[Rfam]
RNA sequence: UUGGCAGACCAGACAAUCGCUGUCCGACCACUUAAUUUAAUUGGCAUGAUAAGUUGCCAUACCCAUGCGAAUGCAGUUAAAUUCAGUGGUCGGAGGGAGGAAAGUCCGGGCUACACAGGGCAGCGUGCUAGCUAACGGCUAGGGGGCGAAAGCCUACGACCAGUGCAACAGAGAACAGACCGCCAACGCCAAUCGGCACGGUAAGGGUGAAACGGUGGGGUAAGAGCCCACCGCAUGACUGGCAACAGCUCAUGGCAAGGUAAACUCCACGCGUAGCAAGACCAAAUAGGUGUCCAAUCGGUUGCCCGCCGAGGAUACGGGUAGGUUGCUCGAGCGUGUCAGCGAUGGCACGCCUAGAUGAAUGAUUGUCCACGACAGAACCCGGCUUAUCGGUUUGCCAACUUA
Number, nucleotide and partner (000 for none) at each position: 001u401002u400003g399004g398005c397006a396007g395008a394009c393010c392011a390012g370013a369014c368015a367016a366017u365018c364019g000020c097021u096022g000023u094024c093025c092026g091027a090028c089029c088030a087031c086032u085033u000034a000035a000036u000037u000038u000039a000040a000041u000042u000043g000044g000045c000046a000047u000048g000049a000050u000051a000052a000053g000054u000055u000056g000057c000058c000059a000060u000061a000062c000063c000064c000065a000066u000067g000068c000069g000070a000071a000072u000073g000074c000075a000076g000077u000078u000079a000080a000081a000082u000083u000084c000085a032086g031087u030088g029089g028090u027091c026092g025093g024094a023095g000096g021097g020098a000099g000100g000101a000102a388103a387104g386105u000106c385107c384108g383109g382110g381111c276112u275113a274114c273115a000116c000117a000118g307119g306120g305121c304122a000123g272124c271125g270126u269127g268128c142129u141130a140131g139132c138133u000134a000135a000136c000137g000138g132139c131140u130141a129142g128143g157144g155145g154146g153147c152148g000149a000150a000151a000152g147153c146154c145155u144156a000157c143158g267159a266160c000161c000162a000163g265164u264165g261166c260167a000168a000169c000170a000171g000172a000173g000174a000175a000176c000177a000178g000179a000180c206181c205182g202183c201184c200185a000186a000187c000188g197189c196190c195191a000192a000193u000194c000195g190196g189197c188198a000199c000200g184201g183202u182203a000204a000205g181206g180207g000208u000209g000210a000211a000212a000213c000214g232215g231216u230217g229218g228219g227220g000221u000222a000223a000224g000225a000226g000227c219228c218229c217230a216231c215232c214233g256234c254235a253236u252237g251238a250239c248240u247241g246242g000243c000244a000245a000246c241247a240248g239249c000250u238251c237252a236253u235254g234255g000256c233257a000258a000259g000260g166261u165262a000263a000264a164265c163266u159267c158268c127269a126270c125271g124272c123273g114274u113275a112276g111277c000278a000279a000280g327281a326282c325283c324284a000285a000286a000287u000288a000289g000290g318291u317292g316293u315294c314295c313296a000297a000298u312299c311300g310301g309302u308303u000304g121305c120306c119307c118308g302309c301310c300311g299312a298313g295314g294315a293316u292317a291318c290319g000320g000321g000322u000323a000324g283325g282326u281327u280328g000329c000330u000331c000332g000333a000334g353335c352336g351337u350338g349339u348340c347341a346342g000343c000344g000345a000346u341347g340348g339349c338350a337351c336352g335353c334354c000355u000356a000357g000358a000359u000360g000361a000362a000363u000364g018365a017366u016367u015368g014369u013370c012371c000372a000373c000374g000375a000376c000377a000378g000379a000380a000381c110382c109383c108384g107385g106386c104387u103388u102389a000390u011391c000392g010393g009394u008395u007396u006397g005398c004399c003400a002401a001402c000403u000404u000405a000